[Rfam]
RNA sequence: UCCUCGCUCAAAGAAUCGCAUUCAAAGCUCACGCACAAAAGAAAGCUUUGCUCUCUUUUCUAUCUUGCUUUGGGAGAAAGUCCCCGGACACCCUGCGCUUUGGAUAAUACCAAAGUACCAAGUCAGGCACUGCGGAAACGCGCCGCCAUAGAAGCAAUUCGAUAGCGGCUUACGCCCUAUUCCCUCACGACAUUCCGUACCACCCGACGGUUACAUUUCACAAUGUUUCUGGAAACAAUGGGGUGUGUGGGGGGUGUUGGAGGGGGGAAGGACUGGUGGUUAAACACCUUUCCUUGUAUUGGGUUGCCUUUCGUCAUGUUCGGAUAGUCAUGCGAUUGCCUCCUAUCUGCUUCUUUGGAAGUCGAUGGAGGUAACUCAAUGGGGCUCAUUCUUGAGGCGAGG
Dot-bracket structure: .((((((((((..((((((..(((((((..........((((.(((...))).)))).........)))))).)....[[.[[[[............((((((......)))))).........................................................................................................((((((....(((.........((((..........................(....).....))))...)))..))))))..............................)))))).(((((.......................))))).........]]]]]].....)))).))))))
Rfam assigns this 402-nucleotide RNA from Penicillium coprophilum to the family "RNase MRP". It is annotated as a ribozyme. Taxonomically the source falls in Penicillium (Eukaryota, Opisthokonta, Fungi, Eurotiomycetes). The match comes from Rfam's covariance-model search (111 bits). The family is grouped with related families in Rfam's "RNaseP clan". For this family Rfam cites "Secondary structure of RNase MRP RNA as predicted by phylogenetic comparison" (Schmitt et al., FASEB J, 1993).